mir-208 microRNA precursor family: a 76-nucleotide RNA from Oryzias javanicus. A reference for the family is Murchison et al. (2008), "Conservation of small RNA pathways in platypus", Genome Res. Taxonomically the source falls in Oryzias (Eukaryota, Neopterygii, Ovalentaria, Beloniformes). The match comes from Rfam's covariance-model search (60 bits).

RNA sequence: UCUGGCAGAUCAGCUUUUUGUUUGUGUUAUGUUCCUACUACAAUGUAAGACGAACAAAAAGUUUUUCCGUUGGAUG
Numbered sequence: 001u002c003u004g005g006c007a008g009a010u011c012a013g014c015u016u017u018u019u020g021u022u023u024g025u026g027u028u029a030u031g032u033u034c035c036u037a038c039u040a041c042a043a044u045g046u047a048a049g050a051c052g053a054a055c056a057a058a059a060a061g062u063u064u065u066u067c068c069g070u071u072g073g074a075u076g
Stems, first nucleotide, its partner, number of pairs: 003072004008067002012063007020055001023052002027048006